RNA sequence: CGGCAACCGUGAUGACCGCUCUUGACUCUGCAGUGAACAUCGCUGUGACAUGGAGACACCAGUCCCUCUAAACUGACGUUGCCA
Numbered sequence: 001c002g003g004c005a006a007c008c009g010u011g012a013u014g015a016c017c018g019c020u021c022u023u024g025a026c027u028c029u030g031c032a033g034u035g036a037a038c039a040u041c042g043c044u045g046u047g048a049c050a051u052g053g054a055g056a057c058a059c060c061a062g063u064c065c066c067u068c069u070a071a072a073c074u075g076a077c078g079u080u081g082c083c084a
Stems, first nucleotide, its partner, number of pairs: 002083006
Small nucleolar RNA SNORD127: an 84-nucleotide sequence from Varanus komodoensis.
Its family is annotated with RNA processing and nucleolus in the Gene Ontology.
The family's consensus secondary structure was predicted with WAR.
The family's RNA type in Rfam is C/D-box small nucleolar RNA.